[Rfam]
RNA sequence: UUUUUAAUGAUGAAAAAAAAAGAAAAACUGACAUAAGUUGAUGAUUUUUGUUUUUUCACCAAGAUCUCUGAAAAA
Number, nucleotide and partner (000 for none) at each position: 001u000002u075003u074004u073005u072006a000007a000008u000009g000010a000011u000012g000013a000014a000015a000016a000017a000018a000019a000020a000021a000022g000023a000024a000025a000026a000027a000028c000029u000030g000031a000032c000033a000034u000035a000036a000037g000038u000039u000040g000041a000042u000043g000044a000045u000046u000047u000048u000049u000050g000051u000052u000053u000054u000055u000056u000057c000058a000059c000060c000061a000062a000063g000064a000065u000066c000067u000068c000069u000070g000071a000072a005073a004074a003075a002
small nucleolar RNA snoR17: a 75-nucleotide sequence from Plasmodium relictum. It is annotated as a C/D-box small nucleolar RNA. On this family, see Chakrabarti et al., RNA 2007: "Structural RNAs of known and unknown function identified in malaria parasites by comparative genomics and RNA analysis". Taxonomically the source falls in Haemamoeba (Eukaryota, Apicomplexa, Haemosporida, Plasmodium). Pairs were carried over by alignment from the consensus structure. Its family is annotated with RNA processing and nucleolus in the Gene Ontology.